[Rfam]
RNA sequence: UUAAUAACUUCCCUCCGAACUUUUAGGCCUAAGGCGUAAGCUAUGGCUUAGAAGUCGAUAGGGUAUAGGCUGGAAACGGCUAUGCCUCUCCAUUGUGGAAAGGAGGUGCAUAUUAUUUAC
Numbered sequence: 001u002u003a004a005u006a007a008c009u010u011c012c013c014u015c016c017g018a019a020c021u022u023u024u025a026g027g028c029c030u031a032a033g034g035c036g037u038a039a040g041c042u043a044u045g046g047c048u049u050a051g052a053a054g055u056c057g058a059u060a061g062g063g064u065a066u067a068g069g070c071u072g073g074a075a076a077c078g079g080c081u082a083u084g085c086c087u088c089u090c091c092a093u094u095g096u097g098g099a100a101a102g103g104a105g106g107u108g109c110a111u112a113u114u115a116u117u118u119a120c
Stems, first nucleotide, its partner, number of pairs: 003116001006113001011108001012106005019055011033042003061087006068081005088098002
Dot-bracket structure: ..(..(....((((((..(((((((((((...(((....)))..))))))))))).....((((((.(((((....)))))))))))((.......))...))))).)....)..)....
Rfam assigns this 120-nucleotide sequence from Calderihabitans maritimus to the family "Molybdenum/Tungsten riboswitch aptamer (Moco RNA motif)". Taxonomically the source falls in Calderihabitans (Bacteria, Bacillati, Bacillota, Clostridia). The match comes from Rfam's covariance-model search (75 bits). The family's consensus secondary structure is taken from published work.